[Rfam]
RNA sequence: AUUGGGAAAGGCAAAGAAGUCUGCCUGAACCACCUGCCCAACGUGCAGGUUGAUGACUUCUACCCCUGC
Numbered sequence: 001a002u003u004g005g006g007a008a009a010g011g012c013a014a015a016g017a018a019g020u021c022u023g024c025c026u027g028a029a030c031c032a033c034c035u036g037c038c039c040a041a042c043g044u045g046c047a048g049g050u051u052g053a054u055g056a057c058u059u060c061u062a063c064c065c066c067u068g069c
Stems, first nucleotide, its partner, number of pairs: 010025004016060006032050006
The record is a 69-nucleotide RNA sequence from Desulfacinum hydrothermale, which matches "Fluoride riboswitch aptamer (crcB RNA motif)" in Rfam. Lineage of the source: Bacteria > Pseudomonadati > Syntrophobacteraceae > Desulfacinum > Desulfacinum hydrothermale. Its family is annotated with positive regulation of gene expression and response to fluoride in the Gene Ontology.